RNA sequence: UAGAAUAAUAUAAAUAAGGGAAAUUAGUAAAAUAGAUUUAUAAUUUUGGGAAAAGGAUUAGCUCUAAGGGUUGGGUAUAUUGGGCUUUAGAUAAACGCCCUAGGAGUAGAUUAUUAUUAGCCGGGUAAUUAAUUGGCGGCUUUUAAUAUUUAGGUAUAGAAGCUUUUAGUAGAUUUCGGUUGUCUAGUAUACGUUUAAUAAUUAAUUUAAAAUUAGUAUAAAUAGGGGGAAUUUAAUUAUUUAAUUAAAAUAUAGUAUUAUAAUAGUUAAAAAGUAGUAUUAAUAUAAUAUAAUUUCUAUUUAGUAUUUUGAAUAUUAAAGUAAAGAAAUUUAAUUAAGCGUAGGUAAACGGCGGGAGUAACUAUAAUUCUCUUAAGGUAGUUAAAUACCUCGUUAUUUAAUUAGUAAUGUAUAUAAAUGGAUUAAUAAGAUUCCUACUAUCCUUAUUUACUAUUUAGCGAAAUUAUAAUUAAGGGAAUAGGUUUAGUAGA
Numbered sequence: 001u002a003g004a005a006u007a008a009u010a011u012a013a014a015u016a017a018g019g020g021a022a023a024u025u026a027g028u029a030a031a032a033u034a035g036a037u038u039u040a041u042a043a044u045u046u047u048g049g050g051a052a053a054a055g056g057a058u059u060a061g062c063u064c065u066a067a068g069g070g071u072u073g074g075g076u077a078u079a080u081u082g083g084g085c086u087u088u089a090g091a092u093a094a095a096c097g098c099c100c101u102a103g104g105a106g107u108a109g110a111u112u113a114u115u116a117u118u119a120g121c122c123g124g125g126u127a128a129u130u131a132a133u134u135g136g137c138g139g140c141u142u143u144u145a146a147u148a149u150u151u152a153g154g155u156a157u158a159g160a161a162g163c164u165u166u167u168a169g170u171a172g173a174u175u176u177c178g179g180u181u182g183u184c185u186a187g188u189a190u191a192c193g194u195u196u197a198a199u200a201a202u203u204a205a206u207u208u209a210a211a212a213u214u215a216g217u218a219u220a221a222a223u224a225g226g227g228g229g230a231a232u233u234u235a236a237u238u239a240u241u242u243a244a245u246u247a248a249a250a251u252a253u254a255g256u257a258u259u260a261u262a263a264u265a266g267u268u269a270a271a272a273a274g275u276a277g278u279a280u281u282a283a284u285a286u287a288a289u290a291u292a293a294u295u296u297c298u299a300u301u302u303a304g305u306a307u308u309u310u311g312a313a314u315a316u317u318a319a320a321g322u323a324a325a326g327a328a329a330u331u332u333a334a335u336u337a338a339g340c341g342u343a344g345g346u347a348a349a350c351g352g353c354g355g356g357a358g359u360a361a362c363u364a365u366a367a368u369u370c371u372c373u374u375a376a377g378g379u380a381g382u383u384a385a386a387u388a389c390c391u392c393g394u395u396a397u398u399u400a401a402u403u404a405g406u407a408a409u410g411u412a413u414a415u416a417a418a419u420g421g422a423u424u425a426a427u428a429a430g431a432u433u434c435c436u437a438c439u440a441u442c443c444u445u446a447u448u449u450a451c452u453a454u455u456u457a458g459c460g461a462a463a464u465u466a467u468a469a470u471u472a473a474g475g476g477a478a479u480a481g482g483u484u485u486a487g488u489a490g491a
Stems, first nucleotide, its partner, number of pairs: 001457004011450006018443003035059005044049001060214002063211001065209004069203005075192009084170003089165002099154006106147002109144002114139002117136004123130002215219001227436007234428002238252003255291008266278004295422003300352002304350002306346004311342001314341001316339001322333004354372006373377001393409006470487005
The family of this 491-nucleotide part of an RNA from Neurospora crassa is "Eukaryotic large subunit ribosomal RNA". Gene Ontology terms of the family: structural constituent of ribosome and ribosome. Its Rfam clan is "LSU clan".